Description: Rfam assigns this 102-nucleotide sequence to the family "RT-9 RNA". Pairs were carried over by alignment from the consensus structure, which is taken from published work. Rfam classes the family as a small RNA.
RNA sequence: GAUUGUCAAGAUUAAGGUUUUGACGACAUAGCUUGAAUAAAAGUUCAAGAGAGUUCAAUCCUUUCAGCAGCUUUGAUGCAAACUGUAAACACAUAAAUAAAG
Numbered sequence: 001g002a003u004u005g006u007c008a009a010g011a012u013u014a015a016g017g018u019u020u021u022g023a024c025g026a027c028a029u030a031g032c033u034u035g036a037a038u039a040a041a042a043g044u045u046c047a048a049g050a051g052a053g054u055u056c057a058a059u060c061c062u063u064u065c066a067g068c069a070g071c072u073u074u075g076a077u078g079c080a081a082a083c084u085g086u087a088a089a090c091a092c093a094u095a096a097a098u099a100a101a102g
Stems, first nucleotide, its partner, number of pairs: 003026010065085003